[Rfam]
The record is a 314-nucleotide RNA from Ceratopteris richardii, which matches "Metazoan signal recognition particle RNA" in Rfam. The organism belongs to Ceratopteris, within Eukaryota. By type it is a non-coding RNA gene. Clan: SRP clan. The family's consensus secondary structure is taken from published work. The signal recognition particle (SRP) is a universally conserved ribonucleoprotein.
RNA sequence: CCCGUGUCGAUGGCCUGUAAUCCGAUAAAUCGGAGGGAUACGGGUUGGGCAUUACGAAUGGGGAGAGGUUCUGUGAGCCGCGGCAGGGCCGAAGAUCACCGCCACCAUAGAAUGCUGCGCCCGUCUCCAAGCCAGGAGUGGAGGUAGGCGCCCUCUCGGAGGGGUGUUGGCGUCUGCUUUCACUGAAGAGGGGGGGAAUGCGUGCAGGCCGGCAACGGAGCGACGAACACCUUCCGCUCUCGGCAGUGGAGGGAUAACGCAAGCCUUCUGAUUGCCUCCGAUCACCCUCCCCGCGCCUUUCCUCCACACCCCAG
Numbered sequence: 001c002c003c004g005u006g007u008c009g010a011u012g013g014c015c016u017g018u019a020a021u022c023c024g025a026u027a028a029a030u031c032g033g034a035g036g037g038a039u040a041c042g043g044g045u046u047g048g049g050c051a052u053u054a055c056g057a058a059u060g061g062g063g064a065g066a067g068g069u070u071c072u073g074u075g076a077g078c079c080g081c082g083g084c085a086g087g088g089c090c091g092a093a094g095a096u097c098a099c100c101g102c103c104a105c106c107a108u109a110g111a112a113u114g115c116u117g118c119g120c121c122c123g124u125c126u127c128c129a130a131g132c133c134a135g136g137a138g139u140g141g142a143g144g145u146a147g148g149c150g151c152c153c154u155c156u157c158g159g160a161g162g163g164g165u166g167u168u169g170g171c172g173u174c175u176g177c178u179u180u181c182a183c184u185g186a187a188g189a190g191g192g193g194g195g196g197a198a199u200g201c202g203u204g205c206a207g208g209c210c211g212g213c214a215a216c217g218g219a220g221c222g223a224c225g226a227a228c229a230c231c232u233u234c235c236g237c238u239c240u241c242g243g244c245a246g247u248g249g250a251g252g253g254a255u256a257a258c259g260c261a262a263g264c265c266u267u268c269u270g271a272u273u274g275c276c277u278c279c280g281a282u283c284a285c286c287c288u289c290c291c292c293g294c295g296c297c298u299u300u301c302c303u304c305c306a307c308a309c310c311c312c313a314g
Stems, first nucleotide, its partner, number of pairs: 001012001021034003042312003046308002049305001051303001056301003060294001062292002065289004073285004078280001080278001082276005089270001091268004116261004121253002125251005131244003135240005140181013153166001155164003190234005199227001201225003209218003